[Rfam]
The family of this 85-nucleotide sequence from Microthlaspi erraticum is "Small nucleolar RNA R12". The source organism's lineage runs through Eukaryota, Euphyllophyta, Gunneridae, Coluteocarpeae and Microthlaspi. The base pairs follow the family's consensus structure, which was predicted with PFOLD. For this family Rfam cites "The high diversity of snoRNAs in plants: identification and comparative study of 120 snoRNA genes from Oryza sativa" (Chen et al., Nucleic Acids Res, 2003). By type it is a C/D-box small nucleolar RNA. About the family: snoR12 is a C/D box small nucleolar RNA, which acts as a methylation guide for 25S ribosomal RNA in plants. snoR12 has been alternatively named snoZ44 in Arabidopsis and snoZ131 in rice.
RNA sequence: AGAGGGAUGAUAAAAAAAAUCAUUCGGAUUCCCAUAGAUUUCCUGCGGGAAAAAUGUGAUCACAAACCAGCUACUUUUUACCUCU
Numbered sequence: 001a002g003a004g005g006g007a008u009g010a011u012a013a014a015a016a017a018a019a020u021c022a023u024u025c026g027g028a029u030u031c032c033c034a035u036a037g038a039u040u041u042c043c044u045g046c047g048g049g050a051a052a053a054a055u056g057u058g059a060u061c062a063c064a065a066a067c068c069a070g071c072u073a074c075u076u077u078u079u080a081c082c083u084c085u
Stems, first nucleotide, its partner, number of pairs: 001085005